[Rfam]
RNA: Guanidine-II riboswitch aptamer (mini-ykkC)
Organism: Teichococcus wenyumeiae
RNA sequence: UUGGAGGGACGGCCCUCCCGCGCAACGCGCAUCCCCUCGCCGGGACGGCCCGG
Numbered sequence: 001u002u003g004g005a006g007g008g009a010c011g012g013c014c015c016u017c018c019c020g021c022g023c024a025a026c027g028c029g030c031a032u033c034c035c036c037u038c039g040c041c042g043g044g045a046c047g048g049c050c051c052g053g
Stems, first nucleotide, its partner, number of pairs: 001020001003018006040053005